[Rfam]
RNA sequence: CUAAUGUUUCUUGCUCAAAUGAGUAUUCCAACCACACUUGGUGUUGUCAUGCAUAUCAUCAUGAUUGUGUGUUUUAGUGGCUGAGAUGCUCAUUUGAGCAAGCAAUGUUAA
Numbered sequence: 001c002u003a004a005u006g007u008u009u010c011u012u013g014c015u016c017a018a019a020u021g022a023g024u025a026u027u028c029c030a031a032c033c034a035c036a037c038u039u040g041g042u043g044u045u046g047u048c049a050u051g052c053a054u055a056u057c058a059u060c061a062u063g064a065u066u067g068u069g070u071g072u073u074u075u076a077g078u079g080g081c082u083g084a085g086a087u088g089c090u091c092a093u094u095u096g097a098g099c100a101a102g103c104a105a106u107g108u109u110a111a
Stems, first nucleotide, its partner, number of pairs: 004108005010102018029083002
Shown here is a 111-nucleotide RNA sequence from Abrus precatorius, a member of the family "MIR828 microRNA precursor family". Rfam 15.1 lists 204 matches to the family in 134 species. It scores 97 bits against the family's covariance model. Lineage of the source: Eukaryota > Gunneridae > Fabaceae > Abreae > Abrus. Pairs were carried over by alignment from the consensus structure, which was predicted with RNAalifold.